[Rfam]
RNA: SAM (S-adenosyl methionine) riboswitch aptamer
Organism: Rothia aeria
RNA sequence: GAUUAUGAGUCCCGGCGUAAAGCUCUGGCUAGCCGGGCGGCAACCCUCUCCCGUAGCGGGGUGCCCCAGAUGAUGAUCUGGCUUCAAGGAACACGAAGCAAGUACGGCGC
Numbered sequence: 001g002a003u004u005a006u007g008a009g010u011c012c013c014g015g016c017g018u019a020a021a022g023c024u025c026u027g028g029c030u031a032g033c034c035g036g037g038c039g040g041c042a043a044c045c046c047u048c049u050c051c052c053g054u055a056g057c058g059g060g061g062u063g064c065c066c067c068a069g070a071u072g073a074u075g076a077u078c079u080g081g082c083u084u085c086a087a088g089g090a091a092c093a094c095g096a097a098g099c100a101a102g103u104a105c106g107g108c109g110c
Stems, first nucleotide, its partner, number of pairs: 001078004009038001011037006021030002039065003044061003048056002081099005088092001